[Rfam]
RNA sequence: CUGCCGACAACGCUGUUCAGUCAGUGUUAGGCAGAUGAGACCGCGACCGUGGGUCGCCAUAAAAUUGAUGGCCUCGGGCGUAAUAUGCUCGGCAGCCAUGAGCA
Numbered sequence: 001c002u003g004c005c006g007a008c009a010a011c012g013c014u015g016u017u018c019a020g021u022c023a024g025u026g027u028u029a030g031g032c033a034g035a036u037g038a039g040a041c042c043g044c045g046a047c048c049g050u051g052g053g054u055c056g057c058c059a060u061a062a063a064a065u066u067g068a069u070g071g072c073c074u075c076g077g078g079c080g081u082a083a084u085a086u087g088c089u090c091g092g093c094a095g096c097c098a099u100g101a102g103c104a
Stems, first nucleotide, its partner, number of pairs: 003058001005056004009028007035050003039047001041045001066104002069101001071096002075092001077090001078088003